[Rfam]
RNA sequence: UUGGGUCUUGCUUCAACAGUGUUUGAACAGACUUAG
Dot-bracket structure: ((((((((.(.((((((...).))))))))))))))
Numbered sequence: 001u002u003g004g005g006u007c008u009u010g011c012u013u014c015a016a017c018a019g020u021g022u023u024u025g026a027a028c029a030g031a032c033u034u035a036g
Stems, first nucleotide, its partner, number of pairs: 001036008010028001012027005017021001
Iron response element I: a 36-nucleotide RNA sequence from Geotrypetes seraphini. Rfam 15.1 lists 6,829 matches to the family in 599 species. The base pairs follow the family's consensus structure, which is taken from published work. The source organism's lineage runs through Eukaryota, Gnathostomata, Dipnotetrapodomorpha, Gymnophiona and Geotrypetes. Rfam links the family to the GO term response to iron ion.